[Rfam]
The family of this 102-nucleotide RNA sequence from Paramesorhizobium leguminum is "rpsB sRNA". Rfam classes the family as a small RNA. Rfam 15.1 lists 245 matches to the family in 245 species. The family's consensus secondary structure is taken from published work.

Nucleotides: 102
Base pairs, nucleotide, nucleotide: 001077003075005074006073007072008071009070010069014044015043024036025035027034051064052063053062054061055060
Number, partner (000 for none) and nucleotide at each position: 001077c002000a003075c004000a005074c006073a007072c008071g009070g010069g011000g012000u013000u014044g015043g016000g017000u018000c019000g020000a021000u022000a023000u024036c025035g026000g027034g028000a029000g030000a031000a032000a033000u034027c035025c036024g037000a038000u039000a040000u041000g042000g043015c044014c045000u046000c047000c048000g049000g050000u051064g052063g053062c054061g055060g056000g057000c058000a059000a060055c061054c062053g063052c064051c065000u066000c067000u068000u069010c070009c071008c072007g073006u074005g075003g076000a077001g078000g079000u080000u081000c082000a083000a084000c085000c086000g087000g088000a089000a090000a091000a092000g093000g094000a095000c096000u097000a098000a099000a100000g101000c102000a